[Rfam]
RNA: Exoribonuclease-resistant RNA (xrRNA) plant-infecting virus (class 3)
Organism: Polerovirus CPPV1
RNA sequence: AGUCAGCCACACGUCAAGUUGCGAGUAGUGGAAGACAAGCCUUGACAA
Numbered sequence: 001a002g003u004c005a006g007c008c009a010c011a012c013g014u015c016a017a018g019u020u021g022c023g024a025g026u027a028g029u030g031g032a033a034g035a036c037a038a039g040c041c042u043u044g045a046c047a048a
Base pairs, nucleotide, nucleotide: 003034007031008030011026012025014045015044016043017042018041